[Rfam]
RNA sequence: AUGCGUAAGGCAUAGUUAUUCCUCCCGGAACGGAACCGGUAAAGUGAGCAUUCUUCAAGAAAGGGAUGGUGUAUUACAUCCCUAUAGCAUCAAUCGUAUCAAAGUUAAUCAUUUGAUUAGCCAGGCUAAUUUGCAACAUCAAAUUAGCUGUUUCGAUUAGUUGGCAUCGUAAAAAGCACGUAUAAAACCUUUUGAUACUAUUGCAAAGUUUAAACUAAACAAAAUCCGCAAAUAAGUUGAUAUGAAUACACAUAUCAGCUUUUUU
Numbered sequence: 001a002u003g004c005g006u007a008a009g010g011c012a013u014a015g016u017u018a019u020u021c022c023u024c025c026c027g028g029a030a031c032g033g034a035a036c037c038g039g040u041a042a043a044g045u046g047a048g049c050a051u052u053c054u055u056c057a058a059g060a061a062a063g064g065g066a067u068g069g070u071g072u073a074u075u076a077c078a079u080c081c082c083u084a085u086a087g088c089a090u091c092a093a094u095c096g097u098a099u100c101a102a103a104g105u106u107a108a109u110c111a112u113u114u115g116a117u118u119a120g121c122c123a124g125g126c127u128a129a130u131u132u133g134c135a136a137c138a139u140c141a142a143a144u145u146a147g148c149u150g151u152u153u154c155g156a157u158u159a160g161u162u163g164g165c166a167u168c169g170u171a172a173a174a175a176g177c178a179c180g181u182a183u184a185a186a187a188c189c190u191u192u193u194g195a196u197a198c199u200a201u202u203g204c205a206a207a208g209u210u211u212a213a214a215c216u217a218a219a220c221a222a223a224a225u226c227c228g229c230a231a232a233u234a235a236g237u238u239g240a241u242a243u244g245a246a247u248a249c250a251c252a253u254a255u256c257a258g259c260u261u262u263u264u265u
Stems, first nucleotide, its partner, number of pairs: 001051004006046002025039004031228004053208003062083007070250006084201004089196005232263001234261011
RNA: FuFi-1 RNA
Organism: Clostridium sp. CAG:307